[Rfam]
RNA sequence: GGCGUAAAGGGCGUGUAGGCGGCUUAGCAAGUCAGAUGUGGAAGCCCCGGGCUCAACUCGGGGAGGACAUCUGAUACUGCUAAGCUAGAGGGCAGGAGAGGAGAGCGGAACUUCCGGUGUAGCGGUGAAAUGCGUAGAUAUCGGAAGGAACGCCGGUGGCGAAGGCGGCUCUCUGGACUGUCCCUGACGCUGAGGCGCGAAAGCUAGGGGAGCGAACGGGAUUAGAUACCCCGGUAGUCCUAGCCGUAAACGAUGGGCACUAGGUGUGGGGAGUUAGACUCUCCGUGCUGCAGCUAACGCGAUAAGUGCCCCGCCUGGGGAGUACGGCCGCAAGGCUAAAACUCAAAGGAAU
Dot-bracket structure: (((.....(.((((.(.(((.(((((((.((((((((((.....(((((((.....)))))))...))))))))..)))))))))...(((((((....((((((((...((((((((...(((......)))......))))))))...).......((....)).)))))))...)))).)))...))))..))))....((((((...((...((((.........))))...))))))))..........((((((..((((((((((((...))))))))))))...((....)).....)))))))))).(((......((((....))))....)))........
Description
This 352-nucleotide part of an RNA from Dictyoglomus turgidum belongs to the Rfam family "Bacterial small subunit ribosomal RNA". It is one of the family's seed sequences. Its family is annotated with structural constituent of ribosome and ribosome in the Gene Ontology.